[Rfam]
RNA sequence: AUCGUUCAACCCUUAUGGGUCGGAAGUAGACGAAAGUCGAAGGAUCGCAUG
Numbered sequence: 001a002u003c004g005u006u007c008a009a010c011c012c013u014u015a016u017g018g019g020u021c022g023g024a025a026g027u028a029g030a031c032g033a034a035a036g037u038c039g040a041a042g043g044a045u046c047g048c049a050u051g
Stems, first nucleotide, its partner, number of pairs: 003047002006044002009020004023048001029038003
Glutamine riboswitch aptamer (glnA leader): a 51-nucleotide sequence. The family's consensus secondary structure is taken from published work. The sequence is in the family's curated seed alignment. For this family Rfam cites "Structural and Dynamic Basis for Low-Affinity, High-Selectivity Binding of L-Glutamine by the Glutamine Riboswitch" (Ren et al., Cell Rep, 2015). Gene Ontology term of the family: glutamine binding.